[Rfam]
RNA: sul1 RNA
RNA sequence: ACAGGACCCGGUGGAACUCCGGGUGGCUAUUCCGGCCGCCAAUCCGCCGGACCGCG
Numbered sequence: 001a002c003a004g005g006a007c008c009c010g011g012u013g014g015a016a017c018u019c020c021g022g023g024u025g026g027c028u029a030u031u032c033c034g035g036c037c038g039c040c041a042a043u044c045c046g047c048c049g050g051a052c053c054g055c056g
Stems, first nucleotide, its partner, number of pairs: 006024006031051006